The family of this 74-nucleotide sequence from Hominibacterium faecale is "Fluoride riboswitch aptamer (crcB RNA motif)". NCBI's taxonomy places the organism under Bacteria, Bacillota, Clostridia, Peptostreptococcales, Hominibacterium. It scores 45 bits against the family's covariance model. The base pairs follow the family's consensus structure, which is taken from published work. Rfam links the family to the GO terms positive regulation of gene expression and response to fluoride.
RNA sequence: CUGACCAAAGGGAAUGAAGUUCUCCCUUGGCGUAUGCCAAAACCACUGAUAAAGUUGAUGACUUCUGCACUUGU
Numbered sequence: 001c002u003g004a005c006c007a008a009a010g011g012g013a014a015u016g017a018a019g020u021u022c023u024c025c026c027u028u029g030g031c032g033u034a035u036g037c038c039a040a041a042a043c044c045a046c047u048g049a050u051a052a053a054g055u056u057g058a059u060g061a062c063u064u065c066u067g068c069a070c071u072u073g074u
Stems, first nucleotide, its partner, number of pairs: 010026004016065006045055003